A member of the RNA family "pan motif" from a Peptococcaceae bacterium, 109 nucleotides long.
By type it is a cis-regulatory element.
The source organism's lineage runs through Bacteria, Bacillota, Clostridia, Eubacteriales and Peptococcaceae.
Pairs were carried over by alignment from the consensus structure, which is taken from published work.

[Rfam]
Nucleotides: 109
Base pairs, nucleotide, nucleotide: 001030002029003028004026005025006024007023008022010021011020076105077104078103079101080100081099082098083097085096086095087094
Number, partner (000 for none) and nucleotide at each position: 001030a002029g003028g004026g005025u006024g007023g008022c009000a010021u011020u012000g013000u014000u015000u016000c017000g018000g019000c020011a021010a022008g023007u024006c025005g026004c027000a028003c029002c030001u031000u032000a033000a034000u035000g036000u037000u038000u039000g040000u041000a042000g043000c044000a045000a046000a047000u048000u049000u050000a051000a052000a053000g054000c055000a056000a057000a058000a059000u060000c061000a062000g063000a064000a065000a066000u067000c068000c069000c070000c071000a072000g073000a074000u075000a076105c077104u078103g079101c080100u081099u082098g083097g084000a085096u086095c087094c088000a089000a090000a091000c092000c093000g094087g095086g096085a097083c098082c099081g100080g101079g102000a103078c104077a105076g106000a107000a108000a109000g